About this RNA: The record is a 95-nucleotide RNA sequence, which matches "Small nucleolar RNA R64/Z200 family" in Rfam. It is one of the family's seed sequences. The literature on the family includes a 2002 paper in Mol Cell Biol by Galardi et al., "Purified box C/D snoRNPs are able to reproduce site-specific 2'-O-methylation of target RNA in vitro". The family's consensus secondary structure was predicted with PFOLD. Its family is annotated with nucleolus and RNA processing in the Gene Ontology. By type it is a C/D-box small nucleolar RNA.

[Rfam]
RNA sequence: GUAUUGCUGUGAUGAAUUAAGAAAAAUUUCACAUGUCAGACUUCAGAGAUUUUUAUAAUCAAUGAGAAUGACAAUUCUUAAUUUCUGAGCUGGAU
Numbered sequence: 001g002u003a004u005u006g007c008u009g010u011g012a013u014g015a016a017u018u019a020a021g022a023a024a025a026a027u028u029u030c031a032c033a034u035g036u037c038a039g040a041c042u043u044c045a046g047a048g049a050u051u052u053u054u055a056u057a058a059u060c061a062a063u064g065a066g067a068a069u070g071a072c073a074a075u076u077c078u079u080a081a082u083u084u085c086u087g088a089g090c091u092g093g094a095u
Stems, first nucleotide, its partner, number of pairs: 001095002004092001006090002048060004